[Rfam]
The record is a 348-nucleotide RNA from Hymenoscyphus albidus, which matches "Group I catalytic intron" in Rfam. The match comes from Rfam's covariance-model search (99 bits). Gene Ontology term of the family: Group I intron splicing.

RNA sequence: ACGAUAAGGUUGUACAUUAUACAACAGCCUAAGUCGAAGUGAACCUUCGGCUUAAAACCAUCAAAUUGCGGGAAAGCCCUAAAGCAAUUUCAACCAAGCAAACGUGGUAACACUGUUUGUGGCACAGGUAAUGACUCGUGGUAUGGUAAAAUCGAAAUUGAUACACGUGAGUGAAUGGGUAAUCCGCAGCCAACCACCUCAUACUUUUAGGUAGAGGUGUGCAGUUCAUCGACUAGAUGUUGGUUGACUUUUUUUACGGUGGGGGGGGGCGAGCAAAAAAUUUUGCUUUGCCAAGCUUCGCCCAAAAAUUAGUUUAAGAUAUAGUCAAGCCUCAUUCGAAAGAAUGCA
Numbered sequence: 001a002c003g004a005u006a007a008g009g010u011u012g013u014a015c016a017u018u019a020u021a022c023a024a025c026a027g028c029c030u031a032a033g034u035c036g037a038a039g040u041g042a043a044c045c046u047u048c049g050g051c052u053u054a055a056a057a058c059c060a061u062c063a064a065a066u067u068g069c070g071g072g073a074a075a076g077c078c079c080u081a082a083a084g085c086a087a088u089u090u091c092a093a094c095c096a097a098g099c100a101a102a103c104g105u106g107g108u109a110a111c112a113c114u115g116u117u118u119g120u121g122g123c124a125c126a127g128g129u130a131a132u133g134a135c136u137c138g139u140g141g142u143a144u145g146g147u148a149a150a151a152u153c154g155a156a157a158u159u160g161a162u163a164c165a166c167g168u169g170a171g172u173g174a175a176u177g178g179g180u181a182a183u184c185c186g187c188a189g190c191c192a193a194c195c196a197c198c199u200c201a202u203a204c205u206u207u208u209a210g211g212u213a214g215a216g217g218u219g220u221g222c223a224g225u226u227c228a229u230c231g232a233c234u235a236g237a238u239g240u241u242g243g244u245u246g247a248c249u250u251u252u253u254u255u256a257c258g259g260u261g262g263g264g265g266g267g268g269g270c271g272a273g274c275a276a277a278a279a280a281u282u283u284u285g286c287u288u289u290g291c292c293a294a295g296c297u298u299c300g301c302c303c304a305a306a307a308a309u310u311a312g313u314u315u316a317a318g319a320u321a322u323a324g325u326c327a328a329g330c331c332u333c334a335u336u337c338g339a340a341a342g343a344a345u346g347c348a
Stems, first nucleotide, its partner, number of pairs: 056245005062239002067188006077179003189225002195219003202213004229327001231326005247313003252308004333346005
Overview: Pairs were carried over by alignment from the consensus structure, which is taken from published work.